A member of the RNA family "Xanthomonas sRNA sX9" from Xanthomonas campestris, 74 nucleotides long.
RNA sequence: AUGUACCUACGUAGACGCCGGUUUCUCCGCGCCGUCCGCACCUACCUGACGACUGCUCGCAACGUUUUUUAGCC
Numbered sequence: 001a002u003g004u005a006c007c008u009a010c011g012u013a014g015a016c017g018c019c020g021g022u023u024u025c026u027c028c029g030c031g032c033c034g035u036c037c038g039c040a041c042c043u044a045c046c047u048g049a050c051g052a053c054u055g056c057u058c059g060c061a062a063c064g065u066u067u068u069u070u071a072g073c074c
Base pairs, nucleotide, nucleotide: 002015004013005012006011019034020033021032022031024029046072047071048070049069051068052067
Dot-bracket structure: .(.(((....))).)...((((.(....).))))...........((((.((..............))))))..

For this family Rfam cites "Genome-wide transcriptome analysis of the plant pathogen Xanthomonas identifies sRNAs with putative virulence functions" (Schmidtke et al., Nucleic Acids Res, 2011). Rfam classes the family as a small RNA. The source organism's lineage runs through Bacteria, Pseudomonadati, Pseudomonadota, Xanthomonas campestris and Xanthomonas campestris pv. campestris.